[Rfam]
RNA: MIR5070 microRNA precursor family
RNA sequence: AAGGGUAACCUCCGACCCUACCUAGUUCAACUAAAUGAGCUAAAUUUUCAGAAUUUACCCCAUUUCUGAAAACUUAGUUCAUUUGGUUGAACUAAGUAGGGUUGGAGGAUACCCUA
Numbered sequence: 001a002a003g004g005g006u007a008a009c010c011u012c013c014g015a016c017c018c019u020a021c022c023u024a025g026u027u028c029a030a031c032u033a034a035a036u037g038a039g040c041u042a043a044a045u046u047u048u049c050a051g052a053a054u055u056u057a058c059c060c061c062a063u064u065u066c067u068g069a070a071a072a073c074u075u076a077g078u079u080c081a082u083u084u085g086g087u088u089g090a091a092c093u094a095a096g097u098a099g100g101g102u103u104g105g106a107g108g109a110u111a112c113c114c115u116a
Base pairs, nucleotide, nucleotide: 002115003114004113005112006111007110009108010107011106012105013104014103015102016101017100018099019098020097021096023094024093025092026091027090028089029088030087031086032085033084034083035082036081037080038079039078040077041076042075043074